[Rfam]
RNA: tRNA
Organism: Plectosphaerella plurivora
RNA sequence: AUCCUAGUGGGGUAGUGGUUAACCCACCAGGUUUUCAUACAGAGAUGUUUCCCUGGGUACCCGAGUUCGAAUCUCGGCUAGGAUA
Numbered sequence: 001a002u003c004c005u006a007g008u009g010g011g012g013u014a015g016u017g018g019u020u021a022a023c024c025c026a027c028c029a030g031g032u033u034u035u036c037a038u039a040c041a042g043a044g045a046u047g048u049u050u051c052c053c054u055g056g057g058u059a060c061c062c063g064a065g066u067u068c069g070a071a072u073c074u075c076g077g078c079u080a081g082g083a084u085a
Stems, first nucleotide, its partner, number of pairs: 001084007010025004027056005061077005
Dot-bracket structure: (((((((..((((........)))).(((((....................)))))....(((((.......)))))))))))).